Background:
The family of this 100-nucleotide RNA from Salinicola sp. MIT1003 is "t44 RNA". The organism belongs to Salinicola, within Bacteria. A search with the family's covariance model found it, with a score of 74 bits. The base pairs follow the family's consensus structure, which was predicted with LocARNA.
[Rfam]
RNA sequence: UUGCCUCGUCAUCAAAAACACACACGCACCGACACAUGGUCCCGGGUGCCGCGACGGCUUGGCCGAACGGUCGGAUCCAUGGGGUGUGUGGAGGCCUAAC
Numbered sequence: 001u002u003g004c005c006u007c008g009u010c011a012u013c014a015a016a017a018a019c020a021c022a023c024a025c026g027c028a029c030c031g032a033c034a035c036a037u038g039g040u041c042c043c044g045g046g047u048g049c050c051g052c053g054a055c056g057g058c059u060u061g062g063c064c065g066a067a068c069g070g071u072c073g074g075a076u077c078c079a080u081g082g083g084g085u086g087u088g089u090g091g092a093g094g095c096c097u098a099a100c
Base pairs, nucleotide, nucleotide: 023090024089025088026087027086028085029084030083035081036080037079038078039077040075041074042073048071049070050069051068